[Rfam]
RNA sequence: CGCGGACGCCGGGCCGUUGGCAGUCGAUCAUCGUAUGCUGCCCGGAAUCCGGUCCGCG
Numbered sequence: 001c002g003c004g005g006a007c008g009c010c011g012g013g014c015c016g017u018u019g020g021c022a023g024u025c026g027a028u029c030a031u032c033g034u035a036u037g038c039u040g041c042c043c044g045g046a047a048u049c050c051g052g053u054c055c056g057c058g
Base pairs, nucleotide, nucleotide: 001058002057003056004055005054006053014045015044016043019042020041021040022039023038024037025033026032

gabT RNA: a 58-nucleotide RNA sequence from Pseudomonas oryzihabitans. The family's consensus secondary structure is taken from published work. Rfam classes the family as a cis-regulatory element.